[Rfam]
RNA: Small nucleolar RNA SNORD127
Nucleotides: 089
Stems, first nucleotide, its partner, number of pairs: 001089007
Number, partner (000 for none) and nucleotide at each position: 001089u002088g003087g004086c005085a006084a007083c008000a009000a010000u011000g012000a013000u014000g015000a016000c017000a018000a019000g020000u021000g022000u023000u024000a025000a026000a027000u028000c029000u030000g031000u032000a033000u034000g035000u036000a037000a038000u039000a040000c041000a042000c043000u044000g045000u046000a047000u048000u049000a050000a051000c052000u053000g054000u055000a056000u057000g058000u059000a060000g061000a062000c063000a064000c065000u066000a067000g068000u069000c070000c071000c072000u073000c074000u075000a076000a077000g078000c079000u080000g081000a082000u083007g084006u085005u086004g087003c088002c089001a